RNA sequence: AAACCGGAUUUUCUAAAAUCCACCCAAACAACCAAAGAAAGUUUG
Numbered sequence: 001a002a003a004c005c006g007g008a009u010u011u012u013c014u015a016a017a018a019u020c021c022a023c024c025c026a027a028a029c030a031a032c033c034a035a036a037g038a039a040a041g042u043u044u045g
Stems, first nucleotide, its partner, number of pairs: 006021006

A member of the RNA family "Histone 3' UTR stem-loop" from Phaeodactylum tricornutum, 45 nucleotides long.
The match comes from Rfam's covariance-model search (36 bits).
NCBI's taxonomy places the organism under Eukaryota, Sar, Stramenopiles, Neidiineae, Phaeodactylum tricornutum.